[Rfam]
RNA sequence: UUCCACAGGGGAAAGGCUAUAACGAUUAUGAGAAAUUAAACCAUAAGCGUAUAGCUUUUCCCCUUUGGCG
Numbered sequence: 001u002u003c004c005a006c007a008g009g010g011g012a013a014a015g016g017c018u019a020u021a022a023c024g025a026u027u028a029u030g031a032g033a034a035a036u037u038a039a040a041c042c043a044u045a046a047g048c049g050u051a052u053a054g055c056u057u058u059u060c061c062c063c064u065u066u067g068g069c070g
Base pairs, nucleotide, nucleotide: 003068004067005066007064009062010061011060013058014057017054018053019052020051021050026046027045028044029043030042
Shown here is a 70-nucleotide RNA from Vespula pensylvanica, a member of the family "mir-965 microRNA precursor family". Pairs were carried over by alignment from the consensus structure, which was predicted with RNAalifold. Taxonomically the source falls in Vespula (Eukaryota, Opisthokonta, Pancrustacea, Dicondylia). On this family, see Huang et al., Bioorg Khim 2012: "The regulation of silkworm fibroin L chain production by miRNA-965 and miRNA-1926 in insect cells".